[Rfam]
RNA sequence: GUAUGUGAAAGUGUCGAAUAGCAUGUUUGCUUUGGAAUGACUCUAAAAGCAUUAAAAGAAGCAUUAAAAGAAGACUGAAAACAUAC
Numbered sequence: 001g002u003a004u005g006u007g008a009a010a011g012u013g014u015c016g017a018a019u020a021g022c023a024u025g026u027u028u029g030c031u032u033u034g035g036a037a038u039g040a041c042u043c044u045a046a047a048a049g050c051a052u053u054a055a056a057a058g059a060a061g062c063a064u065u066a067a068a069a070g071a072a073g074a075c076u077g078a079a080a081a082c083a084u085a086c
Stems, first nucleotide, its partner, number of pairs: 001086006010076003023064005033054003
This 86-nucleotide sequence from Molossus molossus belongs to the Rfam family "GAIT element".
Its family is annotated with negative regulation of translation in the Gene Ontology.
This family represents a cis-acting element in the 3'-UTR of the ceruloplasmin (Cp) gene called gamma interferon inhibitor of translation (GAIT). The GAIT element is involved in selective translational silencing of the Cp transcript. Ceruloplasmin (Cp) is a multifunctional, copper-containing glycoprotein produced by the liver and secreted into the plasma. As an acute-phase protein, its plasma concentration can double during multiple inflammatory conditions. Plasma Cp has been reported to be an independent risk factor for cardiovascular disease, including atherosclerosis, carotid restenosis after endarterectomy, and myocardial infarction. Translational silencing of Cp, and possibly other transcripts, mediated by the GAIT element may contribute to the resolution of the local inflammatory response following cytokine activation of macrophages.
For this family Rfam cites "Transcript-selective translational silencing by gamma interferon is directed by a novel structural element in the ceruloplasmin mRNA 3' untranslated region" (Sampath et al., Mol Cell Biol, 2003).